[Rfam]
RNA sequence: AAAAAGGGCUUGUGCUGUGUUUAGCACAGGGACGGGGUGGGUUCUUGCCCUAUCUCUGCGGAAUCGAUAUCAAGAGAUUUCGGAAGCACAAUUUUUGUAAAACUGGGCUGUCGAUGAUCAUUUGUCUUGACGCCCUC
Numbered sequence: 001a002a003a004a005a006g007g008g009c010u011u012g013u014g015c016u017g018u019g020u021u022u023a024g025c026a027c028a029g030g031g032a033c034g035g036g037g038u039g040g041g042u043u044c045u046u047g048c049c050c051u052a053u054c055u056c057u058g059c060g061g062a063a064u065c066g067a068u069a070u071c072a073a074g075a076g077a078u079u080u081c082g083g084a085a086g087c088a089c090a091a092u093u094u095u096u097g098u099a100a101a102a103c104u105g106g107g108c109u110g111u112c113g114a115u116g117a118u119c120a121u122u123u124g125u126c127u128u129g130a131c132g133c134c135c136u137c
Base pairs, nucleotide, nucleotide: 008087009086010085011084013026014025015024016023017022027058028057029056030055031054032053034051035050036049037048038047059082060081061080062079063078064077065076105135106134107133108132110131111130112129113128114127116126117125118124

Annotation
This 137-nucleotide RNA sequence from Acipenser ruthenus belongs to the Rfam family "U11 spliceosomal RNA". The organism belongs to Acipenser, within Eukaryota. Rfam classes the family as a spliceosomal small nuclear RNA.